[Rfam]
RNA sequence: GGCCUAAUGGUCCUUCUCUGGUAGCUACAAGCAUUGACCAGGGGAUCAAUUAUUGGGCCAGGAAUCAGUUUUCACGCAUUGAUAGGAACCUAAGACUAUUCCAGUUUAAAGUCCAUGGAGCCUAUUAUUUUGAGUUGAUUU
Number, nucleotide and partner (000 for none) at each position: 001g000002g058003c057004c056005u055006a054007a053008u052009g050010g000011u000012c000013c000014u045015u044016c043017u042018c041019u000020g039021g038022u037023a000024g032025c031026u030027a000028c000029a000030a026031g025032c024033a000034u000035u000036g000037a022038c021039c020040a000041g018042g017043g016044g015045a014046u000047c000048a000049a000050u009051u000052a008053u007054u006055g005056g004057g003058c002059c000060a000061g000062g000063a000064a000065u000066c000067a000068g000069u000070u000071u000072u133073c132074a131075c000076g129077c000078a000079u000080u000081g000082a000083u000084a000085g122086g121087a000088a000089c000090c118091u117092a116093a000094g113095a112096c111097u110098a000099u000100u000101c000102c000103a000104g000105u000106u000107u000108a000109a000110a097111g096112u095113c094114c000115a000116u092117g091118g090119a000120g000121c086122c085123u000124a000125u000126u000127a000128u000129u076130u000131u074132g073133a072134g000135u000136u000137g000138a000139u000140u000141u000

Source information:
This 141-nucleotide RNA from Triticum aestivum belongs to the Rfam family "Small nucleolar RNA snoR2/U65". Rfam links the family to the GO terms RNA processing and nucleolus. It scores 70 bits against the family's covariance model. Pairs were carried over by alignment from the consensus structure, which was predicted with WAR. By type it is an H/ACA-box small nucleolar RNA. A reference for the family is Shaw et al. (1998), "Localization and processing from a polycistronic precursor of novel snoRNAs in maize", J Cell Sci.